Rfam assigns this 86-nucleotide sequence from Paenibacillus cellulosilyticus to the family "Group II catalytic intron D1-D4-1". It scores 63 bits against the family's covariance model.
[Rfam]
RNA sequence: UAAGCAUGUCCGAGAGUACAUGUUGAAUGUACAGAAGUCAGCAGAAGCCAUAGUACGCAAGCUGUUGCAAGGGUCUGCGGAAGGGC
Numbered sequence: 001u002a003a004g005c006a007u008g009u010c011c012g013a014g015a016g017u018a019c020a021u022g023u024u025g026a027a028u029g030u031a032c033a034g035a036a037g038u039c040a041g042c043a044g045a046a047g048c049c050a051u052a053g054u055a056c057g058c059a060a061g062c063u064g065u066u067g068c069a070a071g072g073g074u075c076u077g078c079g080g081a082a083g084g085g086c
Stems, first nucleotide, its partner, number of pairs: 001025002004023006011016001038045002047086003056079004061074003
Taxonomically the source falls in Paenibacillus (Bacteria, Bacillati, Bacilli, Paenibacillaceae).